[Rfam]
RNA sequence: GGUCACGAGCGCCAGCGUGAAGCCCCGGCUUGCUGGCCGGCAACCCUCGUUGAGUUCGCGGUGGGGUGCCCCGGGUGAUGACCGGGUCCGGCCGGACGGUCCGCCGGACAAGCGCGCACU
Numbered sequence: 001g002g003u004c005a006c007g008a009g010c011g012c013c014a015g016c017g018u019g020a021a022g023c024c025c026c027g028g029c030u031u032g033c034u035g036g037c038c039g040g041c042a043a044c045c046c047u048c049g050u051u052g053a054g055u056u057c058g059c060g061g062u063g064g065g066g067u068g069c070c071c072c073g074g075g076u077g078a079u080g081a082c083c084g085g086g087u088c089c090g091g092c093c094g095g096a097c098g099g100u101c102c103g104c105c106g107g108a109c110a111a112g113c114g115c116g117c118a119c120u
Stems, first nucleotide, its partner, number of pairs: 001083004009038001011037006021030002039070003044066003048061001086109007094101002

Rfam assigns this 120-nucleotide RNA from Phytohabitans rumicis to the family "SAM (S-adenosyl methionine) riboswitch aptamer". NCBI's taxonomy places the organism under Bacteria, Bacillati, Micromonosporales, Micromonosporaceae, Phytohabitans. A search with the family's covariance model found it, with a score of 98 bits. Pairs were carried over by alignment from the consensus structure, which is taken from published work.